[Rfam]
RNA sequence: AGAUCAUUUCAAAGAGAGGUUGUAGGAUCAAAACCAGGAACUCUUAAUGCUGUGACCUAAGAUAGAAGUUCUCUGUAACAUACACUCAAUAGUGCUAUGUUUUCCUGGGGAGAUAUAAGG
Numbered sequence: 001a002g003a004u005c006a007u008u009u010c011a012a013a014g015a016g017a018g019g020u021u022g023u024a025g026g027a028u029c030a031a032a033a034c035c036a037g038g039a040a041c042u043c044u045u046a047a048u049g050c051u052g053u054g055a056c057c058u059a060a061g062a063u064a065g066a067a068g069u070u071c072u073c074u075g076u077a078a079c080a081u082a083c084a085c086u087c088a089a090u091a092g093u094g095c096u097a098u099g100u101u102u103u104c105c106u107g108g109g110g111a112g113a114u115a116u117a118a119g120g
Base pairs, nucleotide, nucleotide: 002057004055005054006053007052014045015044016043017042018041020039021038023037026035070113071112072111073110074109077106080098081097082096083094084093085092086091
RNA: Small nucleolar RNA SNORA25